This 66-nucleotide sequence from Tupaia belangeri belongs to the Rfam family "MAT2A 3'UTR stem loop E". It scores 60 bits against the family's covariance model.
RNA sequence: CCAGCAUUCCCAGGUAGGCCAAGGUGUUCCACAGAAAACCCUUGUGGUAGUCCUACAAGGGACUGG
Numbered sequence: 001c002c003a004g005c006a007u008u009c010c011c012a013g014g015u016a017g018g019c020c021a022a023g024g025u026g027u028u029c030c031a032c033a034g035a036a037a038a039c040c041c042u043u044g045u046g047g048u049a050g051u052c053c054u055a056c057a058a059g060g061g062a063c064u065g066g
Base pairs, nucleotide, nucleotide: 001066002065003064004063007062008061009060010059014056015055016054017053018052020044021043022042023041024040026032027031
Taxonomically the source falls in Tupaia belangeri (Eukaryota, Eumetazoa, Craniata, Gnathostomata).